[Rfam]
Nucleotides: 117
Base pairs, nucleotide, nucleotide: 016032017031018030019029020028078117079116080115081114082113089112090111092109093108095106096105097104098103
Number, partner (000 for none) and nucleotide at each position: 001000a002000g003000c004000u005000u006000a007000u008000u009000u010000u011000g012000c013000g014000c015000a016032g017031g018030c019029g020028g021000a022000a023000c024000u025000c026000g027000a028020c029019c030018g031017c032016c033000c034000a035000c036000u037000g038000a039000a040000g041000c042000g043000a044000u045000g046000a047000u048000c049000g050000c051000c052000u053000u054000c055000a056000u057000u058000g059000a060000a061000g062000a063000u064000c065000a066000g067000c068000g069000c070000g071000u072000u073000g074000u075000u076000u077000a078117c079116g080115g081114c082113g083000u084000c085000u086000g087000u088000g089112c090111g091000a092109u093108c094000u095106g096105c097104a098103g099000a100000g101000u102000c103098c104097u105096g106095c107000c108093g109092a110000u111090c112089g113082c114081g115080c116079c117078g

Shown here is a 117-nucleotide RNA from Roseovarius gaetbuli, a member of the family "ALIL pseudoknot". A search with the family's covariance model found it, with a score of 108 bits. The base pairs follow the family's consensus structure, which is taken from published work. The source organism's lineage runs through Bacteria, Pseudomonadati, Alphaproteobacteria, Rhodobacterales and Roseovarius.